[Rfam]
RNA sequence: ACUCUCCCAGCUCUGCACUGUCACACUUGCUUUCACACGUGUGGCUUUCGUAAUGGGGAGAGAGAGAAAGGCUCUCCUCAGGACCUCAGGUUGGCCUCGCAGUGGCCAGCCUUUGCUUGAGGGGUGCAACAGGC
Number, nucleotide and partner (000 for none) at each position: 001a000002c066003u065004c064005u063006c062007c000008c060009a000010g000011c058012u057013c056014u055015g054016c000017a000018c000019u000020g045021u044022c043023a042024c041025a040026c039027u000028u000029g000030c000031u000032u000033u000034c000035a000036c000037a000038c000039g026040u025041g024042u023043g022044g021045c020046u000047u000048u000049c000050g000051u000052a000053a000054u015055g014056g013057g012058g011059a000060g008061a000062g006063a005064g004065a003066g002067a000068a000069a000070g000071g000072c000073u000074c124075u123076c122077c121078u120079c000080a118081g117082g116083a000084c000085c000086u000087c000088a112089g111090g110091u000092u108093g107094g106095c105096c104097u000098c000099g000100c000101a000102g000103u000104g096105g095106c094107c093108a092109g000110c090111c089112u088113u000114u000115g000116c082117u081118u080119g000120a078121g077122g076123g075124g074125u000126g000127c000128a000129a000130c000131a000132g000133g000134c000

Small nucleolar RNA SNORA64/SNORA10 family: a 134-nucleotide RNA sequence from Myotis myotis. NCBI's taxonomy places the organism under Eukaryota, Tetrapoda, Amniota, Chiroptera, Myotis. This family belongs to the H/ACA class of small nucleolar RNAs (snoRNAs) which act as guides in the the modification of uridines to pseudouridines. This family includes the human snoRNAs U64 and ACA10 and mouse MBI-29. Rfam 15.1 lists 703 matches to the family in 311 species. The family is grouped with related families in Rfam's "SNORA64 clan".